Shown here is a 74-nucleotide sequence from Thermomonospora curvata, a member of the family "tRNA". The base pairs follow the family's consensus structure, which is taken from published work. The organism belongs to Thermomonospora curvata, within Bacteria. The family's RNA type in Rfam is transfer RNA. The match comes from Rfam's covariance-model search (62 bits).
RNA sequence: GCCCCGAUAGGCCAAUCGGUAGAGCCGGCGGCCUCAAAAGCCGUUCAGUGUGGGUUCGAAUCCCACUCGGGGCA
Number, nucleotide and partner (000 for none) at each position: 001g073002c072003c071004c070005c069006g068007a067008u000009a000010g026011g025012c024013c000014a000015a000016u000017c000018g000019g000020u000021a000022g000023a000024g012025c011026c010027g000028g044029c043030g042031g041032c040033c000034u000035c000036a000037a000038a000039a000040g032041c031042c030043g029044u028045u000046c000047a000048g000049u000050g066051u065052g064053g063054g062055u000056u000057c000058g000059a000060a000061u000062c054063c053064c052065a051066c050067u007068c006069g005070g004071g003072g002073c001074a000